The record is an 89-nucleotide RNA sequence from Mesobacillus zeae, which matches "Glycine riboswitch aptamer" in Rfam. Pairs were carried over by alignment from the consensus structure. A search with the family's covariance model found it, with a score of 67 bits. Rfam links the family to the GO term glycine biosynthetic process. The source organism's lineage runs through Bacteria, Bacillati, Bacilli, Bacillaceae and Mesobacillus.

RNA sequence: AUGAUGGCAAGGGGAGAGACUACAUUUUGUAGCGCCGAAGGAGCAAGCAGGGAUGUGAAUCUCUCAGGCAAAAGUACUCUUGCAGGACG
Numbered sequence: 001a002u003g004a005u006g007g008c009a010a011g012g013g014g015a016g017a018g019a020c021u022a023c024a025u026u027u028u029g030u031a032g033c034g035c036c037g038a039a040g041g042a043g044c045a046a047g048c049a050g051g052g053a054u055g056u057g058a059a060u061c062u063c064u065c066a067g068g069c070a071a072a073a074g075u076a077c078u079c080u081u082g083c084a085g086g087a088c089g
Stems, first nucleotide, its partner, number of pairs: 007083007020032004034069003037065002041063003047056002